[Rfam]
RNA sequence: AAAUAGAUAUUGUGUAUCACUCAUAUAUGUCUGGGAAUAUGGCUCAGAUGUUUCUACAAGAUUACCGUAAAUAAUCUAACUAUGAGUGAAAUUAUUUCAUAU
Number, nucleotide and partner (000 for none) at each position: 001a000002a000003a000004u000005a000006g000007a000008u000009a000010u000011u000012g000013u000014g000015u000016a000017u000018c088019a087020c086021u085022c084023a083024u082025a081026u000027a000028u000029g049030u048031c047032u046033g045034g044035g043036a000037a000038u000039a000040u000041g000042g000043c035044u034045c033046a032047g031048a030049u029050g000051u000052u000053u000054c000055u000056a000057c000058a000059a077060g076061a075062u074063u073064a072065c000066c000067g000068u000069a000070a000071a000072u064073a063074a062075u061076c060077u059078a000079a000080c000081u025082a024083u023084g022085a021086g020087u019088g018089a000090a000091a000092u000093u000094a000095u000096u000097u000098c000099a000100u000101a000102u000
Purine riboswitch aptamer: a 102-nucleotide sequence from Crassaminicella thermophila. Lineage of the source: Bacteria > Clostridia > Eubacteriales > Clostridiaceae > Crassaminicella. It scores 92 bits against the family's covariance model. Rfam's curators write: Riboswitches are metabolite binding domains within certain messenger RNAs that serve as precision sensors for their corresponding targets. Allosteric rearrangement of mRNA structure is mediated by ligand binding, and this results in modulation of gene expression. A class of riboswitches that selectively recognises guanine and becomes saturated at concentrations as low as 5 nM. In Bacillus subtilis, this mRNA motif is located on at least five separate transcriptional units that together encode 17 genes that are mostly involved in purine transport and purine nucleotide biosynthesis.